[Rfam]
RNA sequence: GUAUGGCUGAAUACUGUGUUCUUUUUAUCAAUUGUUUACAUAGCCAGACAUCAUGAAGAAAAGGCAUUCUUACCUUUAAAGUGGUUAUGACAGAGUGCCAAGUUUUUUCAUAGCACAUCAUUAGUAAAGGGAAAUACAAAU
Numbered sequence: 001g002u003a004u005g006g007c008u009g010a011a012u013a014c015u016g017u018g019u020u021c022u023u024u025u026u027a028u029c030a031a032u033u034g035u036u037u038a039c040a041u042a043g044c045c046a047g048a049c050a051u052c053a054u055g056a057a058g059a060a061a062a063g064g065c066a067u068u069c070u071u072a073c074c075u076u077u078a079a080a081g082u083g084g085u086u087a088u089g090a091c092a093g094a095g096u097g098c099c100a101a102g103u104u105u106u107u108u109c110a111u112a113g114c115a116c117a118u119c120a121u122u123a124g125u126a127a128a129g130g131g132a133a134a135u136a137c138a139a140a141u
Stems, first nucleotide, its partner, number of pairs: 002055005014043006070134002073130006088123003093118001095116004100111001
Record summary:
Rfam assigns this 141-nucleotide RNA from Leptonychotes weddellii to the family "Small nucleolar RNA SNORA15". The family's RNA type in Rfam is H/ACA-box small nucleolar RNA. It scores 84 bits against the family's covariance model. ACA15 is a member of the H/ACA class of snoRNA that guide the sites of modification of uridines to pseudouridines. The organism belongs to Leptonychotes, within Eukaryota. For this family Rfam cites "RNomics: an experimental approach that identifies 201 candidates for novel, small, non-messenger RNAs in mouse" (Huttenhofer et al., EMBO J, 2001).